This 538-nucleotide part of an RNA from Phototrophicus methaneseepsis belongs to the Rfam family "Bacterial small subunit ribosomal RNA".
RNA sequence: AAUACGGAGAGUUUGAUCCUGGCUCAGGAUGAACGCUGGCGGCGUGCCUAACACAUGCAAGUCGAACGGGAAUCAUUUUUUCGGAAAUGAGGAGAGUGGCGAACGGGUGAGUAACACGUAGCUAAUCUGCCCUCAAGACUGGGAUAACGGUCGGAAACGAUCGCUAAUACCGGAUAAGCUCACGAAGAGUAAGUAUUUGUGAGAAAAGCUGAGGCGCUUGAGGAUGAGGCUGCGACCCAUCAGCUAGUUGGUGAGGUAAGAGCUUACCAAGGCGACGACGGGUAGGGGACCUGAGAGGGUGGCCCCCCACACUGGGACUGAGACACGGCCCAGACUCCUACGGGAGGCAGCAGUGAGGAAUAUUGCGCAAUGGACGAAAGUCUGACGCAGCGACGCCGCGUGGGUGAAGAAGGUUUUCGGAUCGUAAAGCCCUUUUCUGUGUGACGAGAGAGGACGGUAGCACAGGAAUAAGUGUCGGCUAACUACGUGCCAGCAGCCGCGGUAAAACGUAGGACGCAAGCGUUAUCCGGAGUUACUG
Numbered sequence: 001a002a003u004a005c006g007g008a009g010a011g012u013u014u015g016a017u018c019c020u021g022g023c024u025c026a027g028g029a030u031g032a033a034c035g036c037u038g039g040c041g042g043c044g045u046g047c048c049u050a051a052c053a054c055a056u057g058c059a060a061g062u063c064g065a066a067c068g069g070g071a072a073u074c075a076u077u078u079u080u081u082c083g084g085a086a087a088u089g090a091g092g093a094g095a096g097u098g099g100c101g102a103a104c105g106g107g108u109g110a111g112u113a114a115c116a117c118g119u120a121g122c123u124a125a126u127c128u129g130c131c132c133u134c135a136a137g138a139c140u141g142g143g144a145u146a147a148c149g150g151u152c153g154g155a156a157a158c159g160a161u162c163g164c165u166a167a168u169a170c171c172g173g174a175u176a177a178g179c180u181c182a183c184g185a186a187g188a189g190u191a192a193g194u195a196u197u198u199g200u201g202a203g204a205a206a207a208g209c210u211g212a213g214g215c216g217c218u219u220g221a222g223g224a225u226g227a228g229g230c231u232g233c234g235a236c237c238c239a240u241c242a243g244c245u246a247g248u249u250g251g252u253g254a255g256g257u258a259a260g261a262g263c264u265u266a267c268c269a270a271g272g273c274g275a276c277g278a279c280g281g282g283u284a285g286g287g288g289a290c291c292u293g294a295g296a297g298g299g300u301g302g303c304c305c306c307c308c309a310c311a312c313u314g315g316g317a318c319u320g321a322g323a324c325a326c327g328g329c330c331c332a333g334a335c336u337c338c339u340a341c342g343g344g345a346g347g348c349a350g351c352a353g354u355g356a357g358g359a360a361u362a363u364u365g366c367g368c369a370a371u372g373g374a375c376g377a378a379a380g381u382c383u384g385a386c387g388c389a390g391c392g393a394c395g396c397c398g399c400g401u402g403g404g405u406g407a408a409g410a411a412g413g414u415u416u417u418c419g420g421a422u423c424g425u426a427a428a429g430c431c432c433u434u435u436u437c438u439g440u441g442u443g444a445c446g447a448g449a450g451a452g453g454a455c456g457g458u459a460g461c462a463c464a465g466g467a468a469u470a471a472g473u474g475u476c477g478g479c480u481a482a483c484u485a486c487g488u489g490c491c492a493g494c495a496g497c498c499g500c501g502g503u504a505a506a507a508c509g510u511a512g513g514a515c516g517c518a519a520g521c522g523u524u525a526u527c528c529g530g531a532g533u534u535a536c537u538g
Base pairs, nucleotide, nucleotide: 009025010024011023012022013021027528028527029526030525032524033523034522035521036520037519039399040398041397042396043395044394045392046391047357052355053354054353056352057351058350061100062099063098066097067096073090074089075088076087077086078085079084107310108309109308117234118233119232120231121230122229123228126227127226131223132222133221134220135219136218137217139173140172141171142170148163149162150161151160152159153158179203180202181201182200183199184198185197186196188194208215209214236282237281238280243273244272245271248270249269250268251267252266253265254264255263285307286306287305288304289300290299291298292297312333313332314331315330316329335346336345337344338343363389365388366387367386371384372383373382374381375380402432403431404430405429412423413422414421415420437465438464439463440462441461442460446455472517473516474515475514476513483512484511485510486509487508493500494499
Taxonomically the source falls in Phototrophicus (Bacteria, Bacillati, Chloroflexota, Phototrophicaceae). Rfam links the family to the GO terms ribosome and structural constituent of ribosome. The family's consensus secondary structure is taken from published work.